[Rfam]
RNA sequence: UGCACUGUAUGGUAUCUGCAUCCAGCAAUAUUAUUGUUGGGGUGUUCAAAAGACAGUGCUAUAGAAAUUCAGUAUCUGGCAUCGUUGGUUUCAUGCUUGUCAUGCAUGUUCAGCCUGGUAUUUCUAUUGAUACAGGC
Dot-bracket structure: .((((((.......(.((((((((((((.....))))).))))))....).).))))))..(((((((((((......((((...................)))).........)))).)))))))...........
Small nucleolar RNA SNORA8: a 137-nucleotide RNA sequence from Monodelphis domestica. The match comes from Rfam's covariance-model search (114 bits). The family has 5 seed sequences and 1,490 matches in Rfam 15.1. The organism belongs to Monodelphis, within Eukaryota. Rfam's curators write: ACA8 is a member of the H/ACA class of snoRNA that guide the sites of modification of uridines to pseudouridines. Clan: SNORA8 clan. By type it is an H/ACA-box small nucleolar RNA.